[Rfam]
Shown here is a 111-nucleotide sequence from Ornithorhynchus anatinus, a member of the family "mir-223 microRNA precursor family". Taxonomically the source falls in Ornithorhynchus (Eukaryota, Vertebrata, Tetrapoda, Ornithorhynchidae). Rfam's curators put it in the seed alignment. The literature on the family includes a 2003 paper in Science by Lim et al., "Vertebrate microRNA genes".
RNA sequence: CACGUGACCACACCGCAGUGCCGCGCUCCGUGUAUUUGACAAGCUGAGUUGGACACUCCGUGUGGUUUGAGUGUCAGUUUGUCAAAUACCCUAAGUGAGGCAUGCUCACCC
Dot-bracket structure: .......................((((..(.((((((((((((((......((((.((..........)).)))))))))))))))))).)..))))..............